[Rfam]
RNA sequence: GCGUGGGUCGGCCCGCCGUAGGAGCGGGCCGGGGGACACCGCCGUCUCAAUCCCCGCGGACGGCGGACGGGACCGGGGGGUGUAGGGCGCCUCCCGGUCCGCG
Numbered sequence: 001g002c003g004u005g006g007g008u009c010g011g012c013c014c015g016c017c018g019u020a021g022g023a024g025c026g027g028g029c030c031g032g033g034g035g036a037c038a039c040c041g042c043c044g045u046c047u048c049a050a051u052c053c054c055c056g057c058g059g060a061c062g063g064c065g066g067a068c069g070g071g072a073c074c075g076g077g078g079g080g081u082g083u084a085g086g087g088c089g090c091c092u093c094c095c096g097g098u099c100c101g102c103g
Stems, first nucleotide, its partner, number of pairs: 001102002007068002009031008032037001039066009070100013
A member of the RNA family "Streptomyces RNA 4115" from Streptomyces smaragdinus, 103 nucleotides long. About the family: Identified by deep sequencing of transcriptome at the end of exponential growth phase. Sequencing size consistent with notrthern blot size. Streptomyces specific. Lineage of the source: Bacteria > Bacillati > Actinomycetota > Actinomycetes > Streptomyces. It scores 74 bits against the family's covariance model. By type it is a small RNA.